[Rfam]
RNA: mir-210 microRNA precursor family
RNA sequence: AGAAAUUUCAUUGCAGCUGCUGGACACUGCACAAGAUUAGAAUUACAAUGAUCUCUUGUGCGUGUGACAGCGGCUAUUGUGAACAUUUCCAAGUCUGGAC
Number, nucleotide and partner (000 for none) at each position: 001a000002g000003a000004a000005a086006u085007u083008u082009c081010a080011u079012u000013g000014c000015a075016g074017c073018u072019g071020c070021u069022g068023g000024a000025c064026a063027c000028u062029g061030c060031a059032c058033a057034a000035g055036a054037u000038u000039a000040g000041a000042a000043u000044u000045a000046c000047a000048a000049u000050g000051a000052u000053c000054u036055c035056u000057u033058g032059u031060g030061c029062g028063u026064g025065u000066g000067a000068c022069a021070g020071c019072g018073g017074c016075u015076a000077u000078u000079g011080u010081g009082a008083a007084c000085a006086u005087u000088u000089c000090c000091a000092a000093g000094u000095c000096u000097g000098g000099a000100c000